About this RNA:
Shown here is a 75-nucleotide RNA sequence from Haemonchus placei, a member of the family "mir-5928 microRNA precursor family".
[Rfam]
Nucleotides: 075
Base pairs, nucleotide, nucleotide: 001074002073003072005070006069007068008067011064012063013062014061015060017058018057019056020055021054022053023052025050026049027048028047029046030045032043034041035040
Number, partner (000 for none) and nucleotide at each position: 001074g002073g003072c004000a005070c006069a007068g008067g009000g010000u011064u012063g013062a014061a015060g016000a017058a018057g019056a020055g021054u022053a023052g024000g025050u026049u027048a028047g029046u030045a031000u032043g033000a034041u035040c036000a037000u038000c039000u040035g041034a042000c043032c044000u045030u046029g047028c048027u049026a050025a051000a052023c053022u054021a055020c056019u057018c058017u059000a060015c061014u062013u063012c064011a065000a066000a067008u068007c069006u070005g071000c072003g073002c074001c075000c
Lineage of the source: Eukaryota > Bilateria > Protostomia > Nematoda > Haemonchus.